Bacterial large subunit ribosomal RNA: a 565-nucleotide part of an RNA from Metamycoplasma canadense. The match comes from Rfam's covariance-model search (2750 bits). Its Rfam clan is "LSU clan". The organism belongs to Metamycoplasma, within Bacteria.
[Rfam]
RNA sequence: AAGAUAAGAGUUUUUGGUGGAUGCCUUGGGUCUGGAAGUCGAUGAAGGACGUGAUUACCUGCGAUAAGCCUCGGUUAGUUGGAAAUGAACUGUGAUCCGGGGAUUUCCGAAUGGGGAAACCUAAUUGAGCUAAUCCUCAAUUAUCAUAUCGAUGAAUAAAUAGUCGAAUGAAGAGACACGCUGUGAAUUGAAACAUCUCAGUAGCAGCAGGAAGAGAAAAUAAAGAAUGAUUCCCUAAGUAGUGGCGAGCGAAAGGGGAAAAGCCCAAACCAACAUUUGUUGUUGGGGUUGUAGGACUACAUUUCAGAGUUACAAAAUUUGCAUAUAGCAGAAUAAGUUGGAAUGCUUAAACAAAGAGGGUGAAAUUCCCGUAAGCGAAAUAUGCAAAUCUCUUUGUAGUAUCCUGAGUAGGGCGGGGCACGUGAAACCCUGUCUGAAUCUGCCGGGACCACCCGGUAAGGCUAAAUACUAACCAGACACCGAUAGUGAACUAGUACCGUGAGGGAAAGGUGAAAAGAACCCCGGGAGGGGAGUGAAAUAGAUUCUGAAACCAAUUACUUACAGU
Numbered sequence: 001a002a003g004a005u006a007a008g009a010g011u012u013u014u015u016g017g018u019g020g021a022u023g024c025c026u027u028g029g030g031u032c033u034g035g036a037a038g039u040c041g042a043u044g045a046a047g048g049a050c051g052u053g054a055u056u057a058c059c060u061g062c063g064a065u066a067a068g069c070c071u072c073g074g075u076u077a078g079u080u081g082g083a084a085a086u087g088a089a090c091u092g093u094g095a096u097c098c099g100g101g102g103a104u105u106u107c108c109g110a111a112u113g114g115g116g117a118a119a120c121c122u123a124a125u126u127g128a129g130c131u132a133a134u135c136c137u138c139a140a141u142u143a144u145c146a147u148a149u150c151g152a153u154g155a156a157u158a159a160a161u162a163g164u165c166g167a168a169u170g171a172a173g174a175g176a177c178a179c180g181c182u183g184u185g186a187a188u189u190g191a192a193a194c195a196u197c198u199c200a201g202u203a204g205c206a207g208c209a210g211g212a213a214g215a216g217a218a219a220a221u222a223a224a225g226a227a228u229g230a231u232u233c234c235c236u237a238a239g240u241a242g243u244g245g246c247g248a249g250c251g252a253a254a255g256g257g258g259a260a261a262a263g264c265c266c267a268a269a270c271c272a273a274c275a276u277u278u279g280u281u282g283u284u285g286g287g288g289u290u291g292u293a294g295g296a297c298u299a300c301a302u303u304u305c306a307g308a309g310u311u312a313c314a315a316a317a318u319u320u321g322c323a324u325a326u327a328g329c330a331g332a333a334u335a336a337g338u339u340g341g342a343a344u345g346c347u348u349a350a351a352c353a354a355a356g357a358g359g360g361u362g363a364a365a366u367u368c369c370c371g372u373a374a375g376c377g378a379a380a381u382a383u384g385c386a387a388a389u390c391u392c393u394u395u396g397u398a399g400u401a402u403c404c405u406g407a408g409u410a411g412g413g414c415g416g417g418g419c420a421c422g423u424g425a426a427a428c429c430c431u432g433u434c435u436g437a438a439u440c441u442g443c444c445g446g447g448a449c450c451a452c453c454c455g456g457u458a459a460g461g462c463u464a465a466a467u468a469c470u471a472a473c474c475a476g477a478c479a480c481c482g483a484u485a486g487u488g489a490a491c492u493a494g495u496a497c498c499g500u501g502a503g504g505g506a507a508a509g510g511u512g513a514a515a516a517g518a519a520c521c522c523c524g525g526g527a528g529g530g531g532a533g534u535g536a537a538a539u540a541g542a543u544u545c546u547g548a549a550a551c552c553a554a555u556u557a558c559u560u561a562c563a564g565u
Base pairs, nucleotide, nucleotide: 008560009559010558011557014554015553016552017551023545024510025509028481029480030478031477032476033475034474035473037470038469039174040173047108048107049106050063051062052061069102070101071100072099073098074097078090079089080088113122114121115120123142124141125140126139127138128137129136144171145170146169147168149167150166151165152164153163179210180208181207182206183205184204190197191196220228221227231466232259233258234257235256236255242250243249262463263462264461265460270286271285272284273283274282275281293405294404295403297399298398299397300396301395315391317389318388319387320386321385322384323383324382325381326380328376329375334349335348336347337346338345352356358370359369360368411435412434413433414432415431416430417429418428442457443456444455445454446453497504498503520531521530522529523528